[Rfam]
Small nucleolar RNA SNORD66: a 74-nucleotide sequence from Amphiprion percula. Rfam describes the family as follows. snoRNA HBII-142 is part of the C/D family of snoRNAs. It is the human orthologue of the mouse MBII-142 snoRNA and is predicted to guide 2'O-ribose methylation of small 18S rRNA at residue C1272. By type it is a C/D-box small nucleolar RNA. The family has 20 seed sequences and 1,346 matches in Rfam 15.1. A search with the family's covariance model found it, with a score of 63 bits.

RNA sequence: CUCCAGUACGACCUUAAAUUAGUGCCAUGUGUCUGGGCCACUGAUCUAACCGAUGGGAUUGAAGAACUGAGGAG
Numbered sequence: 001c002u003c004c005a006g007u008a009c010g011a012c013c014u015u016a017a018a019u020u021a022g023u024g025c026c027a028u029g030u031g032u033c034u035g036g037g038c039c040a041c042u043g044a045u046c047u048a049a050c051c052g053a054u055g056g057g058a059u060u061g062a063a064g065a066a067c068u069g070a071g072g073a074g
Stems, first nucleotide, its partner, number of pairs: 001074004